[Rfam]
RNA: Glycine riboswitch aptamer
Nucleotides: 098
Base pairs, nucleotide, nucleotide: 001098002097003096004095005094012028013027014026015025030086031085032084034081037080038079039078043073044072045071046070047069048068049067050066051065052064053063054062
Number, partner (000 for none) and nucleotide at each position: 001098c002097u003096c004095u005094g006000g007000a008000g009000a010000g011000c012028g013027u014026u015025u016000a017000c018000u019000a020000a021000c022000a023000g024000u025015a026014a027013a028012c029000c030086a031085c032084c033000c034081a035000a036000g037080a038079a039078g040000c041000a042000a043073a044072u045071g046070g047069u048068u049067c050066u051065u052064c053063u054062u055000u056000a057000a058000a059000u060000a061000g062054a063053a064052g065051a066050a067049g068048a069047a070046u071045u072044a073043u074000c075000a076000a077000a078039c079038u080037u081034u082000c083000u084032g085031g086030u087000g088000a089000a090000u091000g092000g093000a094005c095004a096003g097002a098001g